[Rfam]
RNA sequence: CCCUUCCUGUCGUUGCAUUCAUUCCAUUACCGGCCGCAUAAGAACCUGCACGCCGCGGCCGGUAAUGGAAUGAAUGCAACGACAGGGAGAU
Numbered sequence: 001c002c003c004u005u006c007c008u009g010u011c012g013u014u015g016c017a018u019u020c021a022u023u024c025c026a027u028u029a030c031c032g033g034c035c036g037c038a039u040a041a042g043a044a045c046c047u048g049c050a051c052g053c054c055g056c057g058g059c060c061g062g063u064a065a066u067g068g069a070a071u072g073a074a075u076g077c078a079a080c081g082a083c084a085g086g087g088a089g090a091u
Stems, first nucleotide, its partner, number of pairs: 003089035